[Rfam]
RNA sequence: GAGGUUCCGGUUCACGCCCGCAGUCCGCAGGCGACCCGGCGACC
Dot-bracket structure: ..(((.((((....((((.((.....)).))))..))))..)))
RNA: L31-Actinobacteria ribosomal protein leader